The family of this 179-nucleotide sequence from Centropus unirufus is "Small Cajal body specific RNA 16". The family's consensus secondary structure was predicted with RNAfold. Lineage of the source: Eukaryota > Sauria > Dinosauria > Neoaves > Centropus.

[Rfam]
RNA sequence: CGGGGCUGGGGAAGGGCUGCUGGGUGGCAGGGCCGCUGGCCCAGCCGUGUUCCAGCCAGCCUCACCCGUGCCCGAGAGCAGCUCCCGGGCAGGUUCCCCACUGGGGAUCGUCCCGUGCAGUAACAGGUGUGAGCAUCCAUGCAGCUUUUUGAUGGUCAUGUAUGAUACUGCAUACAACA
Numbered sequence: 001c002g003g004g005g006c007u008g009g010g011g012a013a014g015g016g017c018u019g020c021u022g023g024g025u026g027g028c029a030g031g032g033c034c035g036c037u038g039g040c041c042c043a044g045c046c047g048u049g050u051u052c053c054a055g056c057c058a059g060c061c062u063c064a065c066c067c068g069u070g071c072c073c074g075a076g077a078g079c080a081g082c083u084c085c086c087g088g089g090c091a092g093g094u095u096c097c098c099c100a101c102u103g104g105g106g107a108u109c110g111u112c113c114c115g116u117g118c119a120g121u122a123a124c125a126g127g128u129g130u131g132a133g134c135a136u137c138c139a140u141g142c143a144g145c146u147u148u149u150u151g152a153u154g155g156u157c158a159u160g161u162a163u164g165a166u167a168c169u170g171c172a173u174a175c176a177a178c179a
Base pairs, nucleotide, nucleotide: 003073004072005071006070008067009066010065015061016060017059018058019056020055021054022053024052026046027045028044030042032040033039034038084106085105086104088102089101092098115173116172117171118170119169120168121167122166124164125163130158131157132156134154135153136152137151141148
From the family's description: scaRNAs are a specific class of small nuclear RNAs which localise to the Cajal bodies and guide the modification of RNA polymerase II transcribed spliceosomal RNAs U1, U2, U4, U5 and U12. ACA47 belongs to the H/ACA box class of guide RNAs as it has the predicted hairpin-hinge-hairpin-tail structure, the conserved H/ACA-box motifs and is found associated with GAR1. ACA47 is predicted to guide the pseudouridylation of residue U5 of the U1 spliceosomal snRNA.